[Rfam]
RNA: Lysine riboswitch aptamer
Organism: Veillonella criceti
RNA sequence: ACUGGAGAUAGAGGCGCGAAGGUUAAGAGUAUUCAUAUGGAGUGGGGCACACGUUGAACUAUGAGGAAAGGAGACUUCGCCGAAGCCUGUUUGAGCCAACAAACAGCGCUGGUUAUGCAUCGAAUAGGUGUAUGACUGUCAUCAUUAGAUGGAGUGCUAGCUCAUUG
Dot-bracket structure: .....((.(((....((((((.((.......((((((......................))))))......)).))))))...((((((((((......))))))).)))(((((((((((.....))))))))))).(((((....)))))....))).)).....
Numbered sequence: 001a002c003u004g005g006a007g008a009u010a011g012a013g014g015c016g017c018g019a020a021g022g023u024u025a026a027g028a029g030u031a032u033u034c035a036u037a038u039g040g041a042g043u044g045g046g047g048c049a050c051a052c053g054u055u056g057a058a059c060u061a062u063g064a065g066g067a068a069a070g071g072a073g074a075c076u077u078c079g080c081c082g083a084a085g086c087c088u089g090u091u092u093g094a095g096c097c098a099a100c101a102a103a104c105a106g107c108g109c110u111g112g113u114u115a116u117g118c119a120u121c122g123a124a125u126a127g128g129u130g131u132a133u134g135a136c137u138g139u140c141a142u143c144a145u146u147a148g149a150u151g152g153a154g155u156g157c158u159a160g161c162u163c164a165u166u167g
Stems, first nucleotide, its partner, number of pairs: 006162002009159003016080006023073002032065006084110003087106007111137011139152005